The family of this 72-nucleotide RNA sequence from Takifugu flavidus is "miR-430 microRNA precursor family". NCBI's taxonomy places the organism under Eukaryota, Neopterygii, Ctenosquamata, Tetradontoidea, Takifugu. Rfam links the family to the GO terms RISC complex and miRNA-mediated post-transcriptional gene silencing. The family is grouped with related families in Rfam's "mir-290 clan".
RNA sequence: AAAAACACCCAAACACUGGCACUGACUUGUAAUUAGUAAAUGGGGUAAGUGCUAUUUGUUGGGGUAGUUUUA
Numbered sequence: 001a002a003a004a005a006c007a008c009c010c011a012a013a014c015a016c017u018g019g020c021a022c023u024g025a026c027u028u029g030u031a032a033u034u035a036g037u038a039a040a041u042g043g044g045g046u047a048a049g050u051g052c053u054a055u056u057u058g059u060u061g062g063g064g065u066a067g068u069u070u071u072a
Stems, first nucleotide, its partner, number of pairs: 004068001007065004013059003018053006025046003